[Rfam]
RNA: TPP riboswitch aptamer (THI element)
Organism: Thiocystis violascens
RNA sequence: GUAGGCUGCUGGGGGUGCCCUCGAUGACCCGCUGUCGCUGAAGCUUUGGUGUCUGGAGCCUGACCGGCUCAACCGAGGUUCCAUCGACAGCUUGCGUGGCGGGCUGAGAAAAGACCCUUUGAACCUGAUCCGGGUCAUGCUGGCGCAGGAAAGCAGGCGAAUGAAAUG
Numbered sequence: 001g002u003a004g005g006c007u008g009c010u011g012g013g014g015g016u017g018c019c020c021u022c023g024a025u026g027a028c029c030c031g032c033u034g035u036c037g038c039u040g041a042a043g044c045u046u047u048g049g050u051g052u053c054u055g056g057a058g059c060c061u062g063a064c065c066g067g068c069u070c071a072a073c074c075g076a077g078g079u080u081c082c083a084u085c086g087a088c089a090g091c092u093u094g095c096g097u098g099g100c101g102g103g104c105u106g107a108g109a110a111a112a113g114a115c116c117c118u119u120u121g122a123a124c125c126u127g128a129u130c131c132g133g134g135u136c137a138u139g140c141u142g143g144c145g146c147a148g149g150a151a152a153g154c155a156g157g158c159g160a161a162u163g164a165a166a167u168g
Stems, first nucleotide, its partner, number of pairs: 006156005011118004016112001017104004124149004130143004